[Rfam]
RNA sequence: GGUCAUGAGCGUCAGCGACAAGCCCUGGCUAGCUGACCGGCAACCCUCGCUCCGCGGUGGGGUGCCCCAGGUGACGACCGGACCGACGUUUCGGUAAUGACGCAUCGGUAAGCGCGAGGG
Numbered sequence: 001g002g003u004c005a006u007g008a009g010c011g012u013c014a015g016c017g018a019c020a021a022g023c024c025c026u027g028g029c030u031a032g033c034u035g036a037c038c039g040g041c042a043a044c045c046c047u048c049g050c051u052c053c054g055c056g057g058u059g060g061g062g063u064g065c066c067c068c069a070g071g072u073g074a075c076g077a078c079c080g081g082a083c084c085g086a087c088g089u090u091u092c093g094g095u096a097a098u099g100a101c102g103c104a105u106c107g108g109u110a111a112g113c114g115c116g117a118g119g120g
Stems, first nucleotide, its partner, number of pairs: 001079004009038001011037006021030002039066003044062003048057001082109005088103002091100003
Rfam assigns this 120-nucleotide sequence from Actinobacteria bacterium OV320 to the family "SAM (S-adenosyl methionine) riboswitch aptamer".
From the family's description: SAM-IV is a mRNA element that regulates gene expression via direct sensing of S-adenosylmethionine (SAM or AdoMet). SAM-IV riboswitches share conserved nucleotide positions with the previously described SAM-I riboswitches sequence analysis and molecular recognition experiments suggest that SAM-I and SAM-IV riboswitches share similar ligand binding sites, but have different scaffolds.